[Rfam]
RNA sequence: AUCUUGCUUUAACCCCCUAAUUUCAAGCAAGUUUUCCAAACAAUGUAAUGCCAUACAUGUGAAUUGCUGUGUGUAGUCUUUGCCCGUCUUCAAGGAUGGGCUUUUUUUUGU
Numbered sequence: 001a002u003c004u005u006g007c008u009u010u011a012a013c014c015c016c017c018u019a020a021u022u023u024c025a026a027g028c029a030a031g032u033u034u035u036c037c038a039a040a041c042a043a044u045g046u047a048a049u050g051c052c053a054u055a056c057a058u059g060u061g062a063a064u065u066g067c068u069g070u071g072u073g074u075a076g077u078c079u080u081u082g083c084c085c086g087u088c089u090u091c092a093a094g095g096a097u098g099g100g101c102u103u104u105u106u107u108u109u110g111u
Stems, first nucleotide, its partner, number of pairs: 004020002033045001035043001065073003082101007
RNA: RprA RNA